[Rfam]
RNA: Glycine riboswitch aptamer
RNA sequence: UAUUGACUUACGGGAGAGACUACAGAUUAUCGUAGCGCCGAAGGAGCAACCACCCAGGAAUCUCUCAGGCAAAAAGGACCGUGCAUAUUAA
Numbered sequence: 001u002a003u004u005g006a007c008u009u010a011c012g013g014g015a016g017a018g019a020c021u022a023c024a025g026a027u028u029a030u031c032g033u034a035g036c037g038c039c040g041a042a043g044g045a046g047c048a049a050c051c052a053c054c055c056a057g058g059a060a061u062c063u064c065u066c067a068g069g070c071a072a073a074a075a076g077g078a079c080c081g082u083g084c085a086u087a088u089u090a091a
Stems, first nucleotide, its partner, number of pairs: 006086001009083005020035004037070003040066002044064003050057001